[Rfam]
RNA sequence: AACUGUGACUCGGGGUGCCGCCUUUUAGGCGGCUGAGACAUACCCGUACCACCUGAUCUGGAUCAUGCCAGCGUAGGGAAGUCACGACGCCAGUCA
Numbered sequence: 001a002a003c004u005g006u007g008a009c010u011c012g013g014g015g016u017g018c019c020g021c022c023u024u025u026u027a028g029g030c031g032g033c034u035g036a037g038a039c040a041u042a043c044c045c046g047u048a049c050c051a052c053c054u055g056a057u058c059u060g061g062a063u064c065a066u067g068c069c070a071g072c073g074u075a076g077g078g079a080a081g082u083c084a085c086g087a088c089g090c091c092a093g094u095c096a
Stems, first nucleotide, its partner, number of pairs: 006084005011046004016040001017033005052077004058071004
RNA: TPP riboswitch aptamer (THI element)
Organism: Paludibacterium purpuratum